[Rfam]
Nucleotides: 130
Stems, first nucleotide, its partner, number of pairs: 009120001011118006022107012048085002053079002056076002060072004
Number, partner (000 for none) and nucleotide at each position: 001000a002000g003000a004000a005000c006000a007000c008000a009120c010000a011118u012117u013116a014115a015114u016113u017000a018000u019000c020000c021000a022107u023106a024105g025104g026103g027102c028101c029100a030099u031098g032097g033096g034000a035000u036000a037000a038000a039000u040000a041000a042000a043000a044000a045000c046000c047000u048085u049084g050000u051000a052000a053079a054078a055000a056076c057075a058000a059000g060072u061071u062070a063069g064000c065000g066000c067000a068000u069063c070062u071061a072060g073000a074000a075057u076056g077000g078054u079053u080000u081000u082000a083000g084049c085048a086000c087000a088000a089000u090000u091000a092000c093000u094000a095000a096033c097032c098031u099030a100029u101028g102027g103026c104025u105024u106023u107022g108000a109000u110000u111000c112000c113016g114015g115014u116013u117012g118011a119000a120009g121000g122000g123000a124000a125000a126000a127000a128000c129000u130000c
Shown here is a 130-nucleotide RNA sequence from Vitis rotundifolia, a member of the family "MIR845_2 microRNA precursor family". A search with the family's covariance model found it, with a score of 132 bits. Lineage of the source: Eukaryota > Embryophyta > rosids > Vitaceae > Vitis. Rfam links the family to the GO terms RISC complex and miRNA-mediated post-transcriptional gene silencing. A reference for the family is Jaillon et al. (2007), "The grapevine genome sequence suggests ancestral hexaploidization in major angiosperm phyla", Nature.